[Rfam]
RNA sequence: CUCGCUCUAACGGGGUGCCUCAUGUCCAUCCGGACAUCUGGCUGAGAGGCUUUCACCAGCCAACCCGCGGAACCUGAUCCGGUUAACACCGGCGGAGGGAUUAGACGCGCGAAAUCA
Numbered sequence: 001c002u003c004g005c006u007c008u009a010a011c012g013g014g015g016u017g018c019c020u021c022a023u024g025u026c027c028a029u030c031c032g033g034a035c036a037u038c039u040g041g042c043u044g045a046g047a048g049g050c051u052u053u054c055a056c057c058a059g060c061c062a063a064c065c066c067g068c069g070g071a072a073c074c075u076g077a078u079c080c081g082g083u084u085a086a087c088a089c090c091g092g093c094g095g096a097g098g099g100a101u102u103a104g105a106c107g108c109g110c111g112a113a114a115u116c117a
Stems, first nucleotide, its partner, number of pairs: 006105005011067004017042003049060003073098003079092004
Dot-bracket structure: .....(((((((((..(((....................)))......(((......)))...)))).....(((...((((......))))...)))..)))))............
Rfam assigns this 117-nucleotide RNA sequence from Arminella tumorigenes to the family "TPP riboswitch aptamer (THI element)". NCBI's taxonomy places the organism under Bacteria, Pseudomonadati, Pseudomonadota, Alphaproteobacteria, Arminella. Pairs were carried over by alignment from the consensus structure, which is taken from published work.